[Rfam]
RNA: U11 spliceosomal RNA
RNA sequence: AAAAAGGGCAUCUACUGCGACUGGCACAGCUGUGGAUGGGGUUUUCUGACACAGCUGCGGAAUCGCUAUCAAGAGAUCGCAGUUUUUAUAACCCGAGGCUGCUAAUGAUUGUUAUUCUUAGUGCCUCA
Numbered sequence: 001a002a003a004a005a006g007g008g009c010a011u012c013u014a015c016u017g018c019g020a021c022u023g024g025c026a027c028a029g030c031u032g033u034g035g036a037u038g039g040g041g042u043u044u045u046c047u048g049a050c051a052c053a054g055c056u057g058c059g060g061a062a063u064c065g066c067u068a069u070c071a072a073g074a075g076a077u078c079g080c081a082g083u084u085u086u087u088a089u090a091a092c093c094c095g096a097g098g099c100u101g102c103u104a105a106u107g108a109u110u111g112u113u114a115u116u117c118u119u120a121g122u123g124c125c126u127c128a
Stems, first nucleotide, its partner, number of pairs: 008080001013026001015024003027057008038046001058079002062077003096126004101122005107117002110114001